RNA sequence: AUGCUCCUAAUGUGUGUUCUAGUGUUGGCAGAUCUCUGAACCCCGCCCUAGCGGUUCAGAAUUGAACCCCGGUCUUCUCCUCCCCAUACGAAGCCCGGGGUUUUUUUUGUCUCCAG
Numbered sequence: 001a002u003g004c005u006c007c008u009a010a011u012g013u014g015u016g017u018u019c020u021a022g023u024g025u026u027g028g029c030a031g032a033u034c035u036c037u038g039a040a041c042c043c044c045g046c047c048c049u050a051g052c053g054g055u056u057c058a059g060a061a062u063u064g065a066a067c068c069c070c071g072g073u074c075u076u077c078u079c080c081u082c083c084c085c086a087u088a089c090g091a092a093g094c095c096c097g098g099g100g101u102u103u104u105u106u107u108u109g110u111c112u113c114c115a116g
Stems, first nucleotide, its partner, number of pairs: 035060008064104003067100006074093004